[Rfam]
RNA: ASpks TB sRNA
Organism: Streptomyces albiflaviniger
RNA sequence: CUUGAUCGACCCCAGCCACAAGGGCUGCUCGGAAGACUUCUCCUUGCCGUACGUGGCCAGCAGCGCCUGCGCCUC
Numbered sequence: 001c002u003u004g005a006u007c008g009a010c011c012c013c014a015g016c017c018a019c020a021a022g023g024g025c026u027g028c029u030c031g032g033a034a035g036a037c038u039u040c041u042c043c044u045u046g047c048c049g050u051a052c053g054u055g056g057c058c059a060g061c062a063g064c065g066c067c068u069g070c071g072c073c074u075c
Stems, first nucleotide, its partner, number of pairs: 014026004032070001038065001043060002047056003